[Rfam]
RNA: mir-8/mir-141/mir-200 microRNA precursor family
Organism: Drosophila sechellia
RNA sequence: GUUCACAUCUUACCGGGCAGCAUUAGAUCCUUUUUAAAACUCUAAUACUGUCAGGUAAAGAUGUCGUC
Numbered sequence: 001g002u003u004c005a006c007a008u009c010u011u012a013c014c015g016g017g018c019a020g021c022a023u024u025a026g027a028u029c030c031u032u033u034u035u036a037a038a039a040c041u042c043u044a045a046u047a048c049u050g051u052c053a054g055g056u057a058a059a060g061a062u063g064u065c066g067u068c
Base pairs, nucleotide, nucleotide: 003066005064006063007062008061009060010058011057012056013055014054016052017051018050019049020048022046023045024044025043026042027041